[Rfam]
RNA sequence: CGAUGCCUCUGGAAAGUGGCGUUAUCUUGCCCGCCCAUGGGGAAAGGCUCCGCCGGCAGCGACCGGACGCCGAAUCUCUCAGGCGCCCGUUACGGGUCGACGACAGAGGGAGAGGA
Number, nucleotide and partner (000 for none) at each position: 001c000002g000003a000004u111005g000006c109007c108008u107009c106010u105011g104012g000013a000014a000015a000016g000017u000018g031019g030020c029021g028022u000023u000024a000025u000026c000027u000028u021029g020030c019031c018032c000033g084034c083035c082036c000037a079038u000039g000040g078041g077042g076043a000044a000045a000046g071047g070048c000049u000050c000051c000052g000053c000054c000055g000056g000057c000058a000059g000060c000061g000062a000063c000064c000065g000066g000067a000068c000069g000070c047071c046072g000073a000074a000075u000076c042077u041078c040079u037080c000081a000082g035083g034084c033085g000086c000087c000088c000089g000090u000091u000092a000093c000094g000095g000096g000097u000098c000099g000100a000101c000102g000103a000104c011105a010106g009107a008108g007109g006110g000111a004112g000113a000114g000115g000116a000
RNA: Glycine riboswitch aptamer